[Rfam]
RNA: Small nucleolar RNA U3
RNA sequence: GAAAUCAUGCUUCACAGGAUCAUUUCUGUAGUAUGUUUUCUUCCAAGGAGCGACACUUGGACUGCCUUUGCAUCUGCGAUGAUCGAGAUGUGGCGUCUUCCUCUGAGCGUGAAGCUCUUCGAAAUGUAUCCCUUUGGGAUCUUUCGAACUUGAGGAUCGUGGUUGGGUCCCGCAAGGGAACUCGCCUGGGGAAGACGCUUGCUGAGCAGA
Numbered sequence: 001g002a003a004a005u006c007a008u009g010c011u012u013c014a015c016a017g018g019a020u021c022a023u024u025u026c027u028g029u030a031g032u033a034u035g036u037u038u039u040c041u042u043c044c045a046a047g048g049a050g051c052g053a054c055a056c057u058u059g060g061a062c063u064g065c066c067u068u069u070g071c072a073u074c075u076g077c078g079a080u081g082a083u084c085g086a087g088a089u090g091u092g093g094c095g096u097c098u099u100c101c102u103c104u105g106a107g108c109g110u111g112a113a114g115c116u117c118u119u120c121g122a123a124a125u126g127u128a129u130c131c132c133u134u135u136g137g138g139a140u141c142u143u144u145c146g147a148a149c150u151u152g153a154g155g156a157u158c159g160u161g162g163u164u165g166g167g168u169c170c171c172g173c174a175a176g177g178g179a180a181c182u183c184g185c186c187u188g189g190g191g192a193a194g195a196c197g198c199u200u201g202c203u204g205a206g207c208a209g210a
Stems, first nucleotide, its partner, number of pairs: 001040004006035006015028005049063002073210005093198011107160003118148004128140005161186002165183004170178002